[Rfam]
RNA: terC RNA
Organism: Paracoccus sulfuroxidans
RNA sequence: AGCGUGGACCGGGCCCCUCUGGCGGUUUGACGACCGUGAUGUCGGACCACAUCG
Numbered sequence: 001a002g003c004g005u006g007g008a009c010c011g012g013g014c015c016c017c018u019c020u021g022g023c024g025g026u027u028u029g030a031c032g033a034c035c036g037u038g039a040u041g042u043c044g045g046a047c048c049a050c051a052u053c054g
Stems, first nucleotide, its partner, number of pairs: 006048002009045004022037006